[Rfam]
RNA: Selenocysteine transfer RNA
Organism: Thermodesulforhabdus norvegica
RNA sequence: GGAAGUGCCCAGCCCGCUGGUGGGGCUCCCGGACUUCAAAUCCGGUGGGGGGCAGUGAAGGCUGUCCCCGGUGGGUUCGAUUCCCAUGCACUUCC
Numbered sequence: 001g002g003a004a005g006u007g008c009c010c011a012g013c014c015c016g017c018u019g020g021u022g023g024g025g026c027u028c029c030c031g032g033a034c035u036u037c038a039a040a041u042c043c044g045g046u047g048g049g050g051g052g053c054a055g056u057g058a059a060g061g062c063u064g065u066c067c068c069c070g071g072u073g074g075g076u077u078c079g080a081u082u083c084c085c086a087u088g089c090a091c092u093u094c095c
Base pairs, nucleotide, nucleotide: 001095002094003093004092005091006090007089008088011027012026013025014024015023017022029045030044031043032042033041048069049068050067051066052065053064054063072086073085074084075083